The family of this 74-nucleotide sequence from Aliidongia dinghuensis is "terC RNA". It scores 52 bits against the family's covariance model. The organism belongs to Aliidongia, within Bacteria. Rfam 15.1 lists 1,112 matches to the family in 772 species.

Nucleotides: 074
Stems, first nucleotide, its partner, number of pairs: 006068007022057006
Number, partner (000 for none) and nucleotide at each position: 001000g002000a003000a004000u005000u006068g007067a008066u009065c010064c011063g012062g013000g014000c015000c016000c017000c018000u019000c020000u021000g022057g023056c024055g025054a026053g027052g028000a029000c030000g031000c032000c033000g034000a035000c036000u037000u038000c039000g040000g041000u042000u043000g044000u045000c046000g047000g048000c049000c050000a051000a052027c053026c054025u055024c056023g057022c058000g059000a060000u061000g062012u063011c064010g065009g066008a067007u068006c069000a070000c071000c072000c073000c074000c